[Rfam]
RNA sequence: UGGGCCCGGGAGAGGCGGCGGCCGGCCUCCGUCUAACCCUAACUGAGCAGGGCGUGGGCGCCGCGCUUUUGUUCCCCGCGCGCUGUUUUUCUCGCUGACUUUCAGCGGGCGGAAAAGCCUCGGCCUACCGCCGUCCACCGUCCGGGUCUGCAGCCAGCAACAAAAAAUGUCAGCCGCUGGCUCGCUCGCCCCUCCCGGGAGCCUGCGGCCGCUCGCCCGCUCAGCCCCCCGCGUCCCGCCCGGAGGCCGCGGCCGGCCCGGGGCUUCUCCGGAGGCGCCCACUGCCGUCGCGAAGAGUUGGGCUCUGUCAGCCGCGGGUCGCCUGGGGGCCGCAGGGCGGGGCUCGGGCCGCAGGGAGAGCAACGGAGCGGGUCCCCGCGCGCGGUGCGUCUCCCUGAGCUGUGGGACUCGCACCCGGGACCGGGCUCGCACACGC
Dot-bracket structure: ....((((((((.(((((.(((((........................................(((((.......(((.(((((........[[[[[[[[[))))).)))..)))))..............................................]]].]]]]]]...)))))...))))).))))))))..(((((((......((((((((...((((((...(((((........(((((.((((..(((...............)))...))))))))).((((.....)))).......))))).....)))))).....))))).))).....)))))))..........((((.((((((........(((((..((((........))))..)))))..))))))..))))........
RNA: Vertebrate telomerase RNA
Organism: Nyctereutes procyonoides